[Rfam]
RNA sequence: UUUAAAACAUAUUAAAAAAUAGUCUGCUUUAUAAUAACCUUAUAAAGAAUAAAUUGGGUGAAUUGCAAAAAAAAAACUUAUAAAGGUUAAGUAAGUUAAUUUGCAGCGAAGUCUAAUUUAGCAUUGUAUGUAAGAGAGGAAACUUUCUUAUAUAAAAUUAGAAACGUUCAACGACUAGAAAGUGAGUAGUGCUAACAAUACUCUUUCCACGAGUGCCCGACAAUUAUAUAUAAAUUAUAUAAUUGAUGACAUAGUCUAAACUUACUAGUGAUAAUAAG
Numbered sequence: 001u002u003u004a005a006a007a008c009a010u011a012u013u014a015a016a017a018a019a020u021a022g023u024c025u026g027c028u029u030u031a032u033a034a035u036a037a038c039c040u041u042a043u044a045a046a047g048a049a050u051a052a053a054u055u056g057g058g059u060g061a062a063u064u065g066c067a068a069a070a071a072a073a074a075a076a077c078u079u080a081u082a083a084a085g086g087u088u089a090a091g092u093a094a095g096u097u098a099a100u101u102u103g104c105a106g107c108g109a110a111g112u113c114u115a116a117u118u119u120a121g122c123a124u125u126g127u128a129u130g131u132a133a134g135a136g137a138g139g140a141a142a143c144u145u146u147c148u149u150a151u152a153u154a155a156a157a158u159u160a161g162a163a164a165c166g167u168u169c170a171a172c173g174a175c176u177a178g179a180a181a182g183u184g185a186g187u188a189g190u191g192c193u194a195a196c197a198a199u200a201c202u203c204u205u206u207c208c209a210c211g212a213g214u215g216c217c218c219g220a221c222a223a224u225u226a227u228a229u230a231u232a233a234a235u236u237a238u239a240u241a242a243u244u245g246a247u248g249a250c251a252u253a254g255u256c257u258a259a260a261c262u263u264a265c266u267a268g269u270g271a272u273a274a275u276a277a278g
Stems, first nucleotide, its partner, number of pairs: 005029002008026002011023003033041002054220004059215002064105006076096005106167002112161001119155001121153001123151001171257001173256005223243008263276002266273002
Notes: Group I catalytic intron: a 278-nucleotide RNA from Bondarzewia mesenterica. Gene Ontology term of the family: Group I intron splicing. The family's consensus secondary structure is taken from published work.